RNA sequence: CGUUUCGAGGGGCGCUGCAGCGGAGACUUCCGCGAGGCUCGAAGCGGUGGUUAUCGGUAACGGCGCCCGCUGUCU
Numbered sequence: 001c002g003u004u005u006c007g008a009g010g011g012g013c014g015c016u017g018c019a020g021c022g023g024a025g026a027c028u029u030c031c032g033c034g035a036g037g038c039u040c041g042a043a044g045c046g047g048u049g050g051u052u053a054u055c056g057g058u059a060a061c062g063g064c065g066c067c068c069g070c071u072g073u074c075u
Base pairs, nucleotide, nucleotide: 002045003044004043005042006041007040008039021032022031023030024029
This 75-nucleotide RNA sequence from Kushneria sinocarnis belongs to the Rfam family "SAH (S-adenosyl-L-homocysteine) riboswitch aptamer".
A search with the family's covariance model found it, with a score of 56 bits.
The base pairs follow the family's consensus structure, which is taken from published work.